[Rfam]
RNA sequence: CAAUUAAAAUAAGUGAUUGCCUAUAUAAUGCCAUAAUAAGGUUGGCGAGUUUCUACCCAGGACCGUAAAUUCUGGACUAUAAGCAAAUUGAGAUGAACU
Numbered sequence: 001c002a003a004u005u006a007a008a009a010u011a012a013g014u015g016a017u018u019g020c021c022u023a024u025a026u027a028a029u030g031c032c033a034u035a036a037u038a039a040g041g042u043u044g045g046c047g048a049g050u051u052u053c054u055a056c057c058c059a060g061g062a063c064c065g066u067a068a069a070u071u072c073u074g075g076a077c078u079a080u081a082a083g084c085a086a087a088u089u090g091a092g093a094u095g096a097a098c099u
Stems, first nucleotide, its partner, number of pairs: 018085003022081004029047005057075006
RNA: Purine riboswitch aptamer